RNA sequence: ACGACCUUACUUGAACAGGAUCUGUUCUAUAGGCUCAUACCUCUGUAUCCUUGUGUUCUAAGGAGACAGGAUAUCAAUUCUGAUGGAUGAAUCAUGACCGUGUGAUCAGAGCGUGAUUAUUGAUCUCACCCAUCUUCGGAUGAGUGGCGCUGCAGAGGAUCGUUCUCAGUCAUUCUUCUGACUGGGUUGGUCACAUGGUUGUCUGACAGACU
Number, nucleotide and partner (000 for none) at each position: 001a038002c000003g035004a000005c033006c032007u031008u000009a000010c000011u000012u000013g027014a026015a025016c024017a023018g022019g000020a000021u000022c018023u017024g016025u015026u014027c013028u000029a000030u000031a007032g006033g005034c000035u003036c000037a000038u001039a000040c000041c000042u000043c069044u068045g067046u066047a000048u064049c063050c062051u061052u060053g059054u000055g000056u000057u000058c000059u053060a052061a051062g050063g049064a048065g000066a046067c045068a044069g043070g000071a000072u000073a000074u000075c000076a000077a000078u000079u210080c209081u208082g207083a000084u000085g000086g000087a000088u000089g000090a000091a000092u000093c000094a000095u000096g000097a199098c198099c197100g196101u195102g194103u193104g192105a191106u190107c189108a188109g000110a164111g163112c162113g161114u000115g000116a000117u000118u000119a000120u000121u152122g151123a000124u149125c000126u147127c146128a145129c144130c000131c142132a141133u140134c139135u000136u000137c000138g000139g134140a133141u132142g131143a000144g129145u128146g127147g126148c000149g124150c000151u122152g121153c000154a000155g000156a000157g000158g000159a000160u000161c113162g112163u111164u110165c000166u185167c184168a183169g182170u181171c180172a179173u000174u000175c000176u000177u000178c000179u172180g171181a170182c169183u168184g167185g166186g000187u000188u108189g107190g106191u105192c104193a103194c102195a101196u100197g099198g098199u097200u000201g000202u000203c000204u000205g000206a000207c082208a081209g080210a079211c000212u000
RNA: Plant small nucleolar RNA U3
Organism: Acer yangbiense